The family of this 138-nucleotide sequence from Arabis alpina is "Small nucleolar RNA snoR144". The family's consensus secondary structure was predicted with mfold. A reference for the family is Chen and Wu (2009), "Mining small RNA sequencing data: a new approach to identify small nucleolar RNAs in Arabidopsis", Nucleic Acids Res. It is annotated as an H/ACA-box small nucleolar RNA. The family has 4 seed sequences and 27 matches in Rfam 15.1. The match comes from Rfam's covariance-model search (126 bits). Its family is annotated with nucleolus and RNA processing in the Gene Ontology.

RNA sequence: AAGGCAACUUUUUGCCGAGUGAAUCGAACAUCGAUCUCUCUCUUUUUCCCAGUUGCCUAAAUCAUAUAAUGGUUGUGAGGAAUAACUUGAUCGAUUAAUUGUUUAUAAUAAUCGAUCUUUCUCUUUGCUACCACAUUA
Numbered sequence: 001a002a003g004g005c006a007a008c009u010u011u012u013u014g015c016c017g018a019g020u021g022a023a024u025c026g027a028a029c030a031u032c033g034a035u036c037u038c039u040c041u042c043u044u045u046u047u048c049c050c051a052g053u054u055g056c057c058u059a060a061a062u063c064a065u066a067u068a069a070u071g072g073u074u075g076u077g078a079g080g081a082a083u084a085a086c087u088u089g090a091u092c093g094a095u096u097a098a099u100u101g102u103u104u105a106u107a108a109u110a111a112u113c114g115a116u117c118u119u120u121c122u123c124u125u126u127g128c129u130a131c132c133a134c135a136u137u138a
Base pairs, nucleotide, nucleotide: 003057004056005055006054007053008052009051017042018041019040021038022037023035024034025033026032064136065135067133071129072128073127077123078122079121080120081119089117090116091115093113094112095111096110097109